[Rfam]
RNA: Small nucleolar RNA SNORD2
Organism: Cyprinus carpio
RNA sequence: GUAUGAAAUGAUGGUCUACCAUCUUUCGGGACUGACCUCUCAUGGAGAUAUUUGUUUCUAAACAUUACUGAUCGUAC
Numbered sequence: 001g002u003a004u005g006a007a008a009u010g011a012u013g014g015u016c017u018a019c020c021a022u023c024u025u026u027c028g029g030g031a032c033u034g035a036c037c038u039c040u041c042a043u044g045g046a047g048a049u050a051u052u053u054g055u056u057u058c059u060a061a062a063c064a065u066u067a068c069u070g071a072u073c074g075u076a077c
Stems, first nucleotide, its partner, number of pairs: 001077006